Early nodulin 40: a 219-nucleotide RNA sequence from Prunus avium. The family has 35 seed sequences and 341 matches in Rfam 15.1. By type it is a non-coding RNA gene. Pairs were carried over by alignment from the consensus structure, which is taken from published work. NCBI's taxonomy places the organism under Eukaryota, Streptophyta, Streptophytina, Embryophyta, Prunus.

[Rfam]
RNA sequence: GUGGAAACAGAUUGGCAAGAAGAGCCAAUCCAUGGGACUUAAAAGCAUGGACAUGGAGUGAGGUUUGUCUCAAACCUCCUCCAAAACUCAACAGUUCGUCUGAGCUCAGUCAAUGGCUGCUAACUACAGCAAGGCAAUGAUCAAGAGGUAGCAGAGGUUUGGCUAGUGCUUGGCGAACCGGCAAGUCACAAAUCGGCAACCGGCUCAGUCAUGAGUCUU
Numbered sequence: 001g002u003g004g005a006a007a008c009a010g011a012u013u014g015g016c017a018a019g020a021a022g023a024g025c026c027a028a029u030c031c032a033u034g035g036g037a038c039u040u041a042a043a044a045g046c047a048u049g050g051a052c053a054u055g056g057a058g059u060g061a062g063g064u065u066u067g068u069c070u071c072a073a074a075c076c077u078c079c080u081c082c083a084a085a086a087c088u089c090a091a092c093a094g095u096u097c098g099u100c101u102g103a104g105c106u107c108a109g110u111c112a113a114u115g116g117c118u119g120c121u122a123a124c125u126a127c128a129g130c131a132a133g134g135c136a137a138u139g140a141u142c143a144a145g146a147g148g149u150a151g152c153a154g155a156g157g158u159u160u161g162g163c164u165a166g167u168g169c170u171u172g173g174c175g176a177a178c179c180g181g182c183a184a185g186u187c188a189c190a191a192a193u194c195g196g197c198a199a200c201c202g203g204c205u206c207a208g209u210c211a212u213g214a215g216u217c218u219u
Base pairs, nucleotide, nucleotide: 055082056081057080094178095177096176097175098174099173111168112167202217203216204215205214206213